[Rfam]
RNA sequence: GUGAAAUGAUGAUGAAGUUUAUCCAUUCUCUGAGUGUCGCUGCUCUGCCCUUCCUGCUACGUUCAGGUCUCCGUUCUGGGGUCUUGGAUGAAAGGCCUCCAGGCAUCUUUCAGCCUUCUGGAGUUCUUCUGGGGGCUGGGAGCAUGGCUGGUUGGCUGCUGGCAAGGCCUGGGCAGGGGCUGCGGGGCCAGAGCACCUUUCUGAGGGGCUCUGACACCAACCAAGAAGAAUGAAACUGUCUGAUCAC
Numbered sequence: 001g002u003g004a005a006a007u008g009a010u011g012a013u014g015a016a017g018u019u020u021a022u023c024c025a026u027u028c029u030c031u032g033a034g035u036g037u038c039g040c041u042g043c044u045c046u047g048c049c050c051u052u053c054c055u056g057c058u059a060c061g062u063u064c065a066g067g068u069c070u071c072c073g074u075u076c077u078g079g080g081g082u083c084u085u086g087g088a089u090g091a092a093a094g095g096c097c098u099c100c101a102g103g104c105a106u107c108u109u110u111c112a113g114c115c116u117u118c119u120g121g122a123g124u125u126c127u128u129c130u131g132g133g134g135g136c137u138g139g140g141a142g143c144a145u146g147g148c149u150g151g152u153u154g155g156c157u158g159c160u161g162g163c164a165a166g167g168c169c170u171g172g173g174c175a176g177g178g179g180c181u182g183c184g185g186g187g188c189c190a191g192a193g194c195a196c197c198u199u200u201c202u203g204a205g206g207g208g209c210u211c212u213g214a215c216a217c218c219a220a221c222c223a224a225g226a227a228g229a230a231u232g233a234a235a236c237u238g239u240c241u242g243a244u245c246a247c
Stems, first nucleotide, its partner, number of pairs: 010246004017239002024232006030225002034221002039183002042180001043178008053167003056163002060090006066083004071079002094159001095156003105145002107142001110139009120130004185218002189213006196206002
Shown here is a 247-nucleotide RNA from Anolis carolinensis, a member of the family "Small nucleolar RNA SNORD17".
Taxonomically the source falls in Anolis (Eukaryota, Eumetazoa, Dipnotetrapodomorpha, Anolidae).
On this family, see Huttenhofer et al., EMBO J 2001: "RNomics: an experimental approach that identifies 201 candidates for novel, small, non-messenger RNAs in mouse".
By type it is a C/D-box small nucleolar RNA.